[Rfam]
RNA: TPP riboswitch aptamer (THI element)
Organism: Rhodanobacter lindaniclasticus
RNA sequence: GUCUUGAAGCGGGGGUGCCCGGCAAAAUGCCGGGCUGAGAGAGUCCCUUGGAACCUGAUCCGGUUUGUACCGGCGUAGGGAGCUUGCAGAGUCGAAUC
Numbered sequence: 001g002u003c004u005u006g007a008a009g010c011g012g013g014g015g016u017g018c019c020c021g022g023c024a025a026a027a028u029g030c031c032g033g034g035c036u037g038a039g040a041g042a043g044u045c046c047c048u049u050g051g052a053a054c055c056u057g058a059u060c061c062g063g064u065u066u067g068u069a070c071c072g073g074c075g076u077a078g079g080g081a082g083c084u085u086g087c088a089g090a091g092u093c094g095a096a097u098c
Base pairs, nucleotide, nucleotide: 007085008084009083010082011048012047013046014045016042017035018034019033020032021031022030023029054079055078056077057076060073061072062071063070